Shown here is a 70-nucleotide RNA sequence from Limnobaculum parvum, a member of the family "MicA sRNA".
Its family is annotated with mRNA binding in the Gene Ontology.
The source organism's lineage runs through Bacteria, Pseudomonadati, Gammaproteobacteria, Enterobacterales and Limnobaculum.
RNA sequence: GUACAAGAACACUCGUUAUCAUCAUCCCUUUUUAGAGAUGUUUAUAAGGCCACUAGAUAUGUGGCCUUUC
Numbered sequence: 001g002u003a004c005a006a007g008a009a010c011a012c013u014c015g016u017u018a019u020c021a022u023c024a025u026c027c028c029u030u031u032u033u034a035g036a037g038a039u040g041u042u043u044a045u046a047a048g049g050c051c052a053c054u055a056g057a058u059a060u061g062u063g064g065c066c067u068u069u070c
Stems, first nucleotide, its partner, number of pairs: 023040004028035002048066006